[Rfam]
Nucleotides: 133
Stems, first nucleotide, its partner, number of pairs: 002059007021042002026037004072125002077120001086111003090107005
Number, partner (000 for none) and nucleotide at each position: 001000g002059g003058c004057c005056u006055c007054u008053u009000c010000c011000u012000a013000g014000u015000u016000a017000c018000c019000a020000c021042a022041g023000g024000c025000u026037g027036u028035g029034u030000u031000c032000u033000u034029a035028u036027a037026c038000u039000g040000a041022c042021u043000a044000u045000a046000u047000a048000g049000a050000a051000a052000g053008a054007g055006g056005a057004g058003g059002c060000a061000a062000a063000a064000u065000a066000a067000c068000c069000c070000u071000a072125u073124c074000c075000a076000a077120u078000g079000u080000a081000u082000g083000c084000c085000u086111c087110a088109g089000c090107c091106u092105a093104g094103g095000c096000c097000a098000c099000u100000g101000u102000u103094c104093c105092u106091g107090g108000u109088c110087u111086g112000u113000a114000u115000u116000u117000u118000g119000a120077a121000a122000g123000a124073g125072g126000a127000a128000a129000c130000a131000u132000a133000g
Small nucleolar RNA SNORA51: a 133-nucleotide RNA from Jaculus jaculus.
Pairs were carried over by alignment from the consensus structure, which was predicted with PFOLD.
It scores 117 bits against the family's covariance model.
From the family's description: ACA51 is a member of the H/ACA class of snoRNA that guide the sites of modification of uridines to pseudouridines.
Rfam classes the family as an H/ACA-box small nucleolar RNA.